[Rfam]
RNA sequence: CUUCUUACUACAUCCUCGCGACUAAUGAGAGGACUGAAACGGGUUAUUGAUACUCUAGCUGAUUAGCUGUUAGUCAAUAUUCAAUACUCUCAUUAGCCGCGCGAAUCGGUUGUAGCCGAAGAGGCUCAUACAAUAAUAAUGUUAUUUAACUUCUGUGCGGCUAAAUAAAGUUCACUGCUGAUUAUUUAU
Numbered sequence: 001c002u003u004c005u006u007a008c009u010a011c012a013u014c015c016u017c018g019c020g021a022c023u024a025a026u027g028a029g030a031g032g033a034c035u036g037a038a039a040c041g042g043g044u045u046a047u048u049g050a051u052a053c054u055c056u057a058g059c060u061g062a063u064u065a066g067c068u069g070u071u072a073g074u075c076a077a078u079a080u081u082c083a084a085u086a087c088u089c090u091c092a093u094u095a096g097c098c099g100c101g102c103g104a105a106u107c108g109g110u111u112g113u114a115g116c117c118g119a120a121g122a123g124g125c126u127c128a129u130a131c132a133a134u135a136a137u138a139a140u141g142u143u144a145u146u147u148a149a150c151u152u153c154u155g156u157g158c159g160g161c162u163a164a165a166u167a168a169a170g171u172u173c174a175c176u177g178c179u180g181a182u183u184a185u186u187u188a189u
Base pairs, nucleotide, nucleotide: 001121002120003119004118010113011112012111017103018102019101020100022096023095024094025093026092027091028090029089030088031087127180128179
RNA: SraG RNA
Organism: Moellerella wisconsensis